Shown here is a 180-nucleotide RNA from Thiomonas intermedia, a member of the family "Manganese Mn2+ riboswitch aptamer (yybP-ykoY)". The organism belongs to Thiomonas intermedia, within Bacteria. It is one of the family's seed sequences.
[Rfam]
RNA sequence: ACACUAAAAAUAGUCAUUGGGGAGUAGCUGCCCUCCGAAUGCGAGAGGGACCUGCGUCAACAUACUUGCCUCACAAGGCAUGGCGCUGGUGAUUCCAUAUUUGGCAAGACCUUUGACCGAAGCGCCUCCGUUGGGCCGGAGAAGCGUUCGGUCAUUGUGUUCUUCCGGCCCGGAGUCAUC
Numbered sequence: 001a002c003a004c005u006a007a008a009a010a011u012a013g014u015c016a017u018u019g020g021g022g023a024g025u026a027g028c029u030g031c032c033c034u035c036c037g038a039a040u041g042c043g044a045g046a047g048g049g050a051c052c053u054g055c056g057u058c059a060a061c062a063u064a065c066u067u068g069c070c071u072c073a074c075a076a077g078g079c080a081u082g083g084c085g086c087u088g089g090u091g092a093u094u095c096c097a098u099a100u101u102u103g104g105c106a107a108g109a110c111c112u113u114u115g116a117c118c119g120a121a122g123c124g125c126c127u128c129c130g131u132u133g134g135g136c137c138g139g140a141g142a143a144g145c146g147u148u149c150g151g152u153c154a155u156u157g158u159g160u161u162c163u164u165c166c167g168g169c170c171c172g173g174a175g176u177c178a179u180c
Base pairs, nucleotide, nucleotide: 031049032048033047050090051089052088054086055085056084057083058082059081067080068079069078070077071076091179094174095173